[Rfam]
RNA sequence: CUAUAGCCCCGAUUGCAAUGAAAACCCCGCAAUGAAGCCUUAGCGUAAUGAGGAGUUGUAAUGGAAAGCGGGAACUUAC
Numbered sequence: 001c002u003a004u005a006g007c008c009c010c011g012a013u014u015g016c017a018a019u020g021a022a023a024a025c026c027c028c029g030c031a032a033u034g035a036a037g038c039c040u041u042a043g044c045g046u047a048a049u050g051a052g053g054a055g056u057u058g059u060a061a062u063g064g065a066a067a068g069c070g071g072g073a074a075c076u077u078a079c
Stems, first nucleotide, its partner, number of pairs: 009071003013067002018062002023057003027053002030050002033047002
The family of this 79-nucleotide RNA sequence from Patiriisocius marinus is "Flavo-1 RNA". Rfam 15.1 lists 7,497 matches to the family in 411 species. Taxonomically the source falls in Patiriisocius (Bacteria, Pseudomonadati, Flavobacteriia, Flavobacteriales).